Record summary:
Ribosomal protein L19 leader: a 37-nucleotide sequence from Macrococcus sp. DPC7161. This family is a putative r-protein leader autoregulatory structure found in B. subtilis and other low-GC Gram-positive bacteria. It is located in the 5' untranslated regions of mRNAs encoding ribosomal protein L19 (rplS). Gene Ontology term of the family: regulation of gene expression. It is annotated as a cis-regulatory leader.

RNA sequence: ACUAUGAUCCGCUGAACAAAUGAUUCAAGAACAUAGG
Numbered sequence: 001a002c003u004a005u006g007a008u009c010c011g012c013u014g015a016a017c018a019a020a021u022g023a024u025u026c027a028a029g030a031a032c033a034u035a036g037g
Stems, first nucleotide, its partner, number of pairs: 003035004008030002013027002015024001017022001